[Rfam]
RNA sequence: UGUGUAGAGGAGCGUGAGGGUGCCGUGCACUAAUGGGUAACCUUUCCUACUCUCACAGU
Numbered sequence: 001u002g003u004g005u006a007g008a009g010g011a012g013c014g015u016g017a018g019g020g021u022g023c024c025g026u027g028c029a030c031u032a033a034u035g036g037g038u039a040a041c042c043u044u045u046c047c048u049a050c051u052c053u054c055a056c057a058g059u
Stems, first nucleotide, its partner, number of pairs: 002056003006053004011048001014046001016044003022038003
RNA: mir-7398 microRNA precursor family